This 73-nucleotide RNA from Rhododendron simsii belongs to the Rfam family "Plastid-ycf2 5UTR RNA". Pairs were carried over by alignment from the consensus structure, which was predicted with LocARNA. From the family's description: Plastid ycf2 is a non-coding RNA (ncRNA) recognised in plastids. The organism belongs to Rhododendron, within Eukaryota. On this family, see Richter et al., Plant Commun 2023: "Retrograde signaling in plants: A critical review focusing on the GUN pathway and beyond".
[Rfam]
RNA sequence: AUGCAUCCAAUAGGUUGAACCUAUGAACUCUCCAAUUAUGAGUUGGGCGCUUUAACCAUUGAACCACGGAUGC
Number, nucleotide and partner (000 for none) at each position: 001a000002u000003g073004c072005a071006u070007c069008c068009a000010a024011u023012a022013g021014g020015u000016u000017g000018a000019a000020c014021c013022u012023a011024u010025g000026a000027a000028c000029u000030c000031u000032c000033c000034a000035a000036u000037u000038a000039u066040g065041a000042g064043u063044u062045g000046g060047g059048c000049g057050c000051u000052u000053u000054a000055a000056c000057c049058a000059u047060u046061g000062a044063a043064c042065c040066a039067c000068g008069g007070a006071u005072g004073c003